[Rfam]
RNA: t44 RNA
Organism: Tenderia electrophaga
RNA sequence: GGUUUUGGCCGGCAAAUUCACACGUGCAUCGUCACCGCUGCCUGGGUGCCUCAGGGUCGAAUAUAGCCACAGAGGUUGGGUCGUCGGGAUGUACGGAGGCUUAAC
Dot-bracket structure: ......................((((((((....(.((..((.....(((((...................))))).))...)).).))))))))..........
Numbered sequence: 001g002g003u004u005u006u007g008g009c010c011g012g013c014a015a016a017u018u019c020a021c022a023c024g025u026g027c028a029u030c031g032u033c034a035c036c037g038c039u040g041c042c043u044g045g046g047u048g049c050c051u052c053a054g055g056g057u058c059g060a061a062u063a064u065a066g067c068c069a070c071a072g073a074g075g076u077u078g079g080g081u082c083g084u085c086g087g088g089a090u091g092u093a094c095g096g097a098g099g100c101u102u103a104a105c
Stems, first nucleotide, its partner, number of pairs: 023095008035086001037084002041079002048076005